[Rfam]
RNA: Lysine riboswitch aptamer
Organism: Evansella cellulosilytica
RNA sequence: CCAUGCGUUAGGGGCGCAAAACGAAUGAGUACAUUACUGGAGUUAAUGGCGAGCACUGAAAGUAAUGGAAAGGUCAAUUUGCCGAAGUGUUUUAAGGAGCCAACUUAAAAUGCUGGGGUGUUGUUUAAUAGGCAACACACUGUCACUGUUUUUAGCAGUGGAGUACUAUCCGAUGG
Numbered sequence: 001c002c003a004u005g006c007g008u009u010a011g012g013g014g015c016g017c018a019a020a021a022c023g024a025a026u027g028a029g030u031a032c033a034u035u036a037c038u039g040g041a042g043u044u045a046a047u048g049g050c051g052a053g054c055a056c057u058g059a060a061a062g063u064a065a066u067g068g069a070a071a072g073g074u075c076a077a078u079u080u081g082c083c084g085a086a087g088u089g090u091u092u093u094a095a096g097g098a099g100c101c102a103a104c105u106u107a108a109a110a111u112g113c114u115g116g117g118g119u120g121u122u123g124u125u126u127a128a129u130a131g132g133c134a135a136c137a138c139a140c141u142g143u144c145a146c147u148g149u150u151u152u153u154a155g156c157a158g159u160g161g162a163g164u165a166c167u168a169u170c171c172g173a174u175g176g
Stems, first nucleotide, its partner, number of pairs: 007170001009168003016082005023075002032067007086114011115141002118138008143161007